[Rfam]
Rfam assigns this 136-nucleotide sequence from Leptobrachium leishanense to the family "Small nucleolar RNA SNORD94". The literature on the family includes a 2002 paper in Mol Cell Biol by Galardi et al., "Purified box C/D snoRNPs are able to reproduce site-specific 2'-O-methylation of target RNA in vitro". Lineage of the source: Eukaryota > Bilateria > Deuterostomia > Vertebrata > Leptobrachium.
Nucleotides: 136
Stems, first nucleotide, its partner, number of pairs: 002135004
Number, partner (000 for none) and nucleotide at each position: 001000a002135c003134g004133g005132c006000g007000a008000u009000g010000a011000u012000g013000a014000u015000u016000g017000g018000c019000g020000c021000a022000g023000g024000g025000g026000u027000a028000c029000c030000g031000a032000c033000c034000u035000c036000g037000g038000c039000u040000g041000g042000a043000u044000a045000a046000u047000g048000g049000g050000g051000g052000c053000c054000g055000a056000g057000u058000g059000c060000a061000a062000g063000c064000g065000u066000c067000g068000c069000u070000g071000u072000g073000u074000a075000g076000c077000c078000u079000g080000c081000a082000u083000g084000u085000a086000g087000c088000a089000g090000g091000c092000g093000a094000c095000g096000a097000c098000g099000g100000a101000c102000c103000g104000c105000u106000u107000g108000c109000a110000u111000g112000a113000g114000a115000a116000c117000a118000g119000a120000g121000c122000c123000g124000c125000g126000a127000u128000c129000u130000g131000a132005g133004c134003c135002g136000c